RNA sequence: GGUUGCAACACCCCCGUGGGUUGGGUGAAGGCUCGGUGAGCUGACACAGUGAAUCCACUGCAGCC
Number, nucleotide and partner (000 for none) at each position: 001g065002g064003u063004u062005g061006c060007a059008a000009c000010a000011c000012c000013c051014c049015c000016g058017u057018g056019g055020g054021u053022u052023g050024g000025g047026u046027g045028a000029a000030g042031g041032c040033u039034c038035g000036g000037u000038g034039a033040g032041c031042u030043g000044a000045c027046a026047c025048a000049g014050u023051g013052a022053a021054u020055c019056c018057a017058c016059u007060g006061c005062a004063g003064c002065c001
A member of the RNA family "nadA riboswitch", 65 nucleotides long. Rfam's curators put it in the seed alignment.